RNA sequence: UCCCACAGCUACUGGUCUGCAACUGUUCUCAUCUGUAGCAGUUGUUGUAUUCCACUGUGGAAAAGAAACUGUUACACUGUUAAAUCACCUCUUUCUAAUGCAAAAGAAAGUGGAUUCCUUGUGUGACAGACACCU
Dot-bracket structure: ..((((..........(.(((((((.............))))))).).........)))).............((((..........((.((((((........)))))).)).......))))...........
Overview:
Small nucleolar RNA SNORA41: a 135-nucleotide sequence from Vombatus ursinus. Rfam 15.1 lists 676 matches to the family in 522 species. The family's RNA type in Rfam is H/ACA-box small nucleolar RNA. Gene Ontology terms of the family: RNA processing and nucleolus. ACA41 is a member of the H/ACA class of snoRNA that guide the sites of modification of uridines to pseudouridines. The match comes from Rfam's covariance-model search (118 bits).